[Rfam]
RNA sequence: UGCCAUGCUUUUCCACAGCUUUCUUGAACUUCAAUUCUCUGCUGUCUAAAUCUCUUUCAGGACUAGCACCAUGAAAGCUCAAGAAAGCUGUGGGAGACCAUGGCAA
Number, nucleotide and partner (000 for none) at each position: 001u000002g000003c103004c102005a101006u100007g099008c000009u000010u000011u000012u000013c093014c092015a091016c000017a089018g088019c087020u086021u085022u084023c000024u082025u081026g080027a079028a000029c077030u076031u075032c000033a000034a000035u000036u000037c000038u000039c000040u000041g000042c000043u000044g000045u000046c000047u000048a000049a000050a000051u000052c000053u000054c000055u000056u000057u000058c000059a000060g000061g000062a000063c000064u000065a000066g000067c000068a000069c000070c000071a000072u000073g000074a000075a031076a030077g029078c000079u027080c026081a025082a024083g000084a022085a021086a020087g019088c018089u017090g000091u015092g014093g013094g000095a000096g000097a000098c000099c007100a006101u005102g004103g003104c000105a000106a000